RNA: DUF2693 RNA
RNA sequence: GAUCUUUGACAUUCUUGAUACAAACAAUGGCGAAUACAGAUAAUCUGCAGGUGAAAGGCCUGCACGUGAUUAAUCCAUUGUCGUUAGCCUGCGACCUAAUGUGCGCAGGGCGAAGCCGUGGAAGGCACGGAAUACCCGAGGCUCGGAAGCCUCCUGACGACAC
Number, nucleotide and partner (000 for none) at each position: 001g000002a000003u000004c000005u000006u000007u000008g000009a000010c000011a000012u000013u000014c000015u000016u000017g000018a000019u000020a000021c000022a000023a000024a000025c000026a000027a000028u000029g000030g000031c000032g000033a000034a000035u000036a000037c000038a000039g000040a000041u000042a000043a000044u000045c000046u064047g063048c062049a061050g060051g059052u000053g000054a000055a000056a000057g000058g000059c051060c050061u049062g048063c047064a046065c000066g000067u000068g000069a000070u000071u000072a000073a000074u000075c000076c000077a000078u000079u000080g161081u160082c159083g158084u157085u156086a155087g154088c109089c108090u107091g106092c105093g104094a000095c000096c000097u000098a000099a000100u000101g000102u000103g000104c093105g092106c091107a090108g089109g088110g000111c000112g000113a000114a000115g000116c130117c129118g128119u127120g126121g000122a000123a000124g000125g000126c120127a119128c118129g117130g116131a000132a000133u000134a000135c000136c000137c000138g153139a152140g151141g150142c000143u000144c000145g000146g000147a000148a000149g000150c141151c140152u139153c138154c087155u086156g085157a084158c083159g082160a081161c080162a000163c000